RNA sequence: AUGGCUUUGAACCUGGCAUUCAGUGUAGAAACCUGUGUGUGUGAAACGACAGCUACAUUGUCUGCUGGGUUUCAACACCACCUCC
Numbered sequence: 001a002u003g004g005c006u007u008u009g010a011a012c013c014u015g016g017c018a019u020u021c022a023g024u025g026u027a028g029a030a031a032c033c034u035g036u037g038u039g040u041g042u043g044a045a046a047c048g049a050c051a052g053c054u055a056c057a058u059u060g061u062c063u064g065c066u067g068g069g070u071u072u073c074a075a076c077a078c079c080a081c082c083u084c085c
Base pairs, nucleotide, nucleotide: 013068014067015066016065017064018063021060022059023058024057025056026055027054028053033052034051035050036049
mir-221 microRNA precursor family: an 85-nucleotide RNA from Chanos chanos. On this family, see Soares et al., BMC Genomics 2009: "Parallel DNA pyrosequencing unveils new zebrafish microRNAs". A search with the family's covariance model found it, with a score of 63 bits.